The family of this 115-nucleotide RNA sequence from Domibacillus epiphyticus is "BsrF". It is annotated as a small RNA. Taxonomically the source falls in Domibacillus (Bacteria, Bacillati, Bacilli, Bacillaceae). It scores 63 bits against the family's covariance model.
[Rfam]
RNA sequence: GCGAUGAGCUCGUUUGCGUAAGUCGGACGGACAUUCCUUUUUGAGGAACAUGUUGUGGAGCAUGGUCUGGACGCCGCAAAUUUCGAGAAAACACUCUGUCUUUGGGCAGAGUGUU
Numbered sequence: 001g002c003g004a005u006g007a008g009c010u011c012g013u014u015u016g017c018g019u020a021a022g023u024c025g026g027a028c029g030g031a032c033a034u035u036c037c038u039u040u041u042u043g044a045g046g047a048a049c050a051u052g053u054u055g056u057g058g059a060g061c062a063u064g065g066u067c068u069g070g071a072c073g074c075c076g077c078a079a080a081u082u083u084c085g086a087g088a089a090a091a092c093a094c095u096c097u098g099u100c101u102u103u104g105g106g107c108a109g110a111g112u113g114u115u
Stems, first nucleotide, its partner, number of pairs: 014079005024073002028069005035044002049064002052061003090115009